[Rfam]
RNA sequence: CAUCCCCAUGAUAACUAAUCUGUAAAUUAAAAGUAGUGGGCUGACAUGUAUUGAUGAAAAACAAUGUCUCUGAGGUAUG
Numbered sequence: 001c002a003u004c005c006c007c008a009u010g011a012u013a014a015c016u017a018a019u020c021u022g023u024a025a026a027u028u029a030a031a032a033g034u035a036g037u038g039g040g041c042u043g044a045c046a047u048g049u050a051u052u053g054a055u056g057a058a059a060a061a062c063a064a065u066g067u068c069u070c071u072g073a074g075g076u077a078u079g
Base pairs, nucleotide, nucleotide: 001079002078003077005075006074
The record is a 79-nucleotide RNA sequence from Ziziphus jujuba, which matches "Small nucleolar RNA R21" in Rfam. A reference for the family is Barneche et al. (2001), "Identification of 66 box C/D snoRNAs in Arabidopsis thaliana: extensive gene duplications generated multiple isoforms predicting new ribosomal RNA 2'-O-methylation sites", J Mol Biol. The base pairs follow the family's consensus structure, which was predicted with PFOLD. Rfam 15.1 lists 472 matches to the family in 146 species.